[Rfam]
The family of this 78-nucleotide RNA from Lemur catta is "mir-27 microRNA precursor family". Its family is annotated with miRNA-mediated post-transcriptional gene silencing and RISC complex in the Gene Ontology. Rfam 15.1 lists 1,440 matches to the family in 645 species. The literature on the family includes a 2005 paper in Genes Dev by Chen et al., "The developmental miRNA profiles of zebrafish as determined by small RNA cloning". NCBI's taxonomy places the organism under Eukaryota, Metazoa, Craniata, Eutheria, Lemur.
RNA sequence: CUGAGGAGCAGGGCUUAGCUGCUUGUGAGCAGGGUCCACACCAAAUCAUGUUCACAGUGGCUAAGUUCCGCCCCCCGG
Numbered sequence: 001c002u003g004a005g006g007a008g009c010a011g012g013g014c015u016u017a018g019c020u021g022c023u024u025g026u027g028a029g030c031a032g033g034g035u036c037c038a039c040a041c042c043a044a045a046u047c048a049u050g051u052u053c054a055c056a057g058u059g060g061c062u063a064a065g066u067u068c069c070g071c072c073c074c075c076c077g078g
Base pairs, nucleotide, nucleotide: 011068012067013066014065015064016063017062018061019060020059025055026054027053028052029051030050031049